This 172-nucleotide sequence from Clostridium sulfidigenes belongs to the Rfam family "Lysine riboswitch aptamer". Gene Ontology term of the family: lysine biosynthetic process. Taxonomically the source falls in Clostridium (Bacteria, Bacillati, Bacillota, Clostridiaceae). The match comes from Rfam's covariance-model search (115 bits).
RNA sequence: AUUUAGGGUAGAGGAGCUUUUACCAAAAGUAUUCUUGAGAAGUGGGCACACGAUGAUACAAGAAGAAAGGGGAGAAAAGCCGAAGAGAAUAACCUGGCAAGGAUAUUCUCUGGGAUAGUACAAAAUAUGUGCUAUACUGCCACUAUGAAAAUAGUGGAGAGCUACAAAGUAA
Numbered sequence: 001a002u003u004u005a006g007g008g009u010a011g012a013g014g015a016g017c018u019u020u021u022a023c024c025a026a027a028a029g030u031a032u033u034c035u036u037g038a039g040a041a042g043u044g045g046g047c048a049c050a051c052g053a054u055g056a057u058a059c060a061a062g063a064a065g066a067a068a069g070g071g072g073a074g075a076a077a078a079g080c081c082g083a084a085g086a087g088a089a090u091a092a093c094c095u096g097g098c099a100a101g102g103a104u105a106u107u108c109u110c111u112g113g114g115a116u117a118g119u120a121c122a123a124a125a126u127a128u129g130u131g132c133u134a135u136a137c138u139g140c141c142a143c144u145a146u147g148a149a150a151a152u153a154g155u156g157g158a159g160a161g162c163u164a165c166a167a168a169g170u171a172a
Stems, first nucleotide, its partner, number of pairs: 008165004016080006023072002032064006039057001084111008093102003112138002115135008140157007